The record is an 89-nucleotide sequence from Conservatibacter flavescens, which matches "t44 RNA" in Rfam.
The match comes from Rfam's covariance-model search (55 bits).
Nucleotides: 089
Base pairs, nucleotide, nucleotide: 023079024078025077026076027075028074029073030072037069038068039067040066041065042064043063044062045061050060052058053057
Number, partner (000 for none) and nucleotide at each position: 001000a002000u003000u004000a005000u006000u007000u008000a009000c010000u011000a012000a013000c014000u015000a016000a017000a018000a019000c020000a021000c022000a023079c024078a025077c026076a027075u028074a029073u030072c031000a032000a033000c034000a035000a036000g037069g038068u039067u040066a041065a042064a043063u044062u045061g046000g047000g048000g049000u050060g051000c052058c053057u054000u055000c056000g057053g058052g059000u060050u061045c062044a063043a064042u065041u066040u067039a068038a069037u070000g071000a072030g073029a074028u075027a076026u077025g078024u079023g080000g081000a082000g083000g084000c085000a086000a087000a088000a089000c